[Rfam]
RNA: Giant, ornate, lake- and Lactobacillales-derived (GOLLD) RNA
Organism: Xanthomonas phage XacN1
RNA sequence: CAGGGGCGUGUUGUAUUUGGUACUUCAAAAGGGUAUCGAGCAACGGCAACACACGUCCUGAGCAACAAAACAACUUCAUAGGUUAAUGAAAUUAAUUAAACGCAAAGUUGUUGCCGGUGCAUGAUGAAAGUGACGUAAUGCUUGACACGCAAGUGAAUCAAGCCAUUCCGAGGCUCGCAAGGCAGAGGGGUGUUGUGGGAAAGUCGCACGUUUGGGGUCGAACCCUUUACUGCUCGCAAGGCAGGCGGUAGACAGAACCAUGAAUAGUCAUGCACGACAGUGGAAAUGCCACCACUUUAAUCUAGGCCGUCAUGGUUGCUACUCACAUGAGUGAGUGGAUAACGGUAGAAACUUCGCUCGCAAGCGGAGUAUAAUGACCGGAAAGGUAACCAAUCAAUGCUGUAAUCUCAGGCA
Numbered sequence: 001c002a003g004g005g006g007c008g009u010g011u012u013g014u015a016u017u018u019g020g021u022a023c024u025u026c027a028a029a030a031g032g033g034u035a036u037c038g039a040g041c042a043a044c045g046g047c048a049a050c051a052c053a054c055g056u057c058c059u060g061a062g063c064a065a066c067a068a069a070a071c072a073a074c075u076u077c078a079u080a081g082g083u084u085a086a087u088g089a090a091a092u093u094a095a096u097u098a099a100a101c102g103c104a105a106a107g108u109u110g111u112u113g114c115c116g117g118u119g120c121a122u123g124a125u126g127a128a129a130g131u132g133a134c135g136u137a138a139u140g141c142u143u144g145a146c147a148c149g150c151a152a153g154u155g156a157a158u159c160a161a162g163c164c165a166u167u168c169c170g171a172g173g174c175u176c177g178c179a180a181g182g183c184a185g186a187g188g189g190g191u192g193u194u195g196u197g198g199g200a201a202a203g204u205c206g207c208a209c210g211u212u213u214g215g216g217g218u219c220g221a222a223c224c225c226u227u228u229a230c231u232g233c234u235c236g237c238a239a240g241g242c243a244g245g246c247g248g249u250a251g252a253c254a255g256a257a258c259c260a261u262g263a264a265u266a267g268u269c270a271u272g273c274a275c276g277a278c279a280g281u282g283g284a285a286a287u288g289c290c291a292c293c294a295c296u297u298u299a300a301u302c303u304a305g306g307c308c309g310u311c312a313u314g315g316u317u318g319c320u321a322c323u324c325a326c327a328u329g330a331g332u333g334a335g336u337g338g339a340u341a342a343c344g345g346u347a348g349a350a351a352c353u354u355c356g357c358u359c360g361c362a363a364g365c366g367g368a369g370u371a372u373a374a375u376g377a378c379c380g381g382a383a384a385g386g387u388a389a390c391c392a393a394u395c396a397a398u399g400c401u402g403u404a405a406u407c408u409c410a411g412g413c414a
Stems, first nucleotide, its partner, number of pairs: 001060001003059007010044005017039009045115007102178002117275009131312005140163006146155003164192005173183003195261004204248004214226004230244005288307003314391006320337007338407003343380004348375001399413003